[Rfam]
RNA: mir-191 microRNA precursor family
Organism: Indicator maculatus
RNA sequence: GGCGCCGGUGUGGGCAACGGAAUCCCAAAAGCAGCUGUCCCCACUGUGUCCAGCUGCCCUGGGGUUUCGUUACCUGCACUUCCGCCC
Numbered sequence: 001g002g003c004g005c006c007g008g009u010g011u012g013g014g015c016a017a018c019g020g021a022a023u024c025c026c027a028a029a030a031g032c033a034g035c036u037g038u039c040c041c042c043a044c045u046g047u048g049u050c051c052a053g054c055u056g057c058c059c060u061g062g063g064g065u066u067u068c069g070u071u072a073c074c075u076g077c078a079c080u081u082c083c084g085c086c087c
Base pairs, nucleotide, nucleotide: 009078010077011076012075013074017070018069019068020067021066022065023064024063025062028060031057032056033055034054035053036052037051